Archaeal signal recognition particle RNA: a 312-nucleotide RNA sequence from Halostella sp. JP-L12. On this family, see Wild et al., Curr Opin Struct Biol 2002: "Towards the structure of the mammalian signal recognition particle". Rfam classes the family as a non-coding RNA gene. It scores 194 bits against the family's covariance model. Rfam links the family to the GO terms signal recognition particle, plasma membrane targeting and SRP-dependent cotranslational protein targeting to membrane, signal sequence recognition. Pairs were carried over by alignment from the consensus structure, which is taken from published work.

[Rfam]
RNA sequence: AGGUGGACUAGGUCGGGCAGUUAGGCCCUGCUCGUCACCCGCACUAUGGUCUUUAGCGGGGACCGAACCCCGGGCACGUCCGGUCAGACCGGUCGGGGCCCCGGGAGCCAACGUGGAAGCCUCGUCCAUCGGGGGCAGCGGUCCGCGACGGCCAUCCGCAGGGAUGUCCCGUCGCGGUUCGUCGGUGGCAAUCCGUCAGGCGCGGAAGCGAGCAGCGGACCGCCGGACACCUGUCGCUCGAUGGGUCGCGGGGUGGAGGAGGCAACCGGGAUUCCCCCGUCCGGAACGCCGGGCAACCUCGGGCGUCCGCCA
Numbered sequence: 001a002g003g004u005g006g007a008c009u010a011g012g013u014c015g016g017g018c019a020g021u022u023a024g025g026c027c028c029u030g031c032u033c034g035u036c037a038c039c040c041g042c043a044c045u046a047u048g049g050u051c052u053u054u055a056g057c058g059g060g061g062a063c064c065g066a067a068c069c070c071c072g073g074g075c076a077c078g079u080c081c082g083g084u085c086a087g088a089c090c091g092g093u094c095g096g097g098g099c100c101c102c103g104g105g106a107g108c109c110a111a112c113g114u115g116g117a118a119g120c121c122u123c124g125u126c127c128a129u130c131g132g133g134g135g136c137a138g139c140g141g142u143c144c145g146c147g148a149c150g151g152c153c154a155u156c157c158g159c160a161g162g163g164a165u166g167u168c169c170c171g172u173c174g175c176g177g178u179u180c181g182u183c184g185g186u187g188g189c190a191a192u193c194c195g196u197c198a199g200g201c202g203c204g205g206a207a208g209c210g211a212g213c214a215g216c217g218g219a220c221c222g223c224c225g226g227a228c229a230c231c232u233g234u235c236g237c238u239c240g241a242u243g244g245g246u247c248g249c250g251g252g253g254u255g256g257a258g259g260a261g262g263c264a265a266c267c268g269g270g271a272u273u274c275c276c277c278c279g280u281c282c283g284g285a286a287c288g289c290c291g292g293g294c295a296a297c298c299u300c301g302g303g304c305g306u307c308c309g310c311c312a
Stems, first nucleotide, its partner, number of pairs: 002311007011064004015033006038060005069303006078294004082289001089284004094279005100270005107263003112258001114256001119254007126244008134235005140228001141179001143177008151168001153166005182226007192219005201210003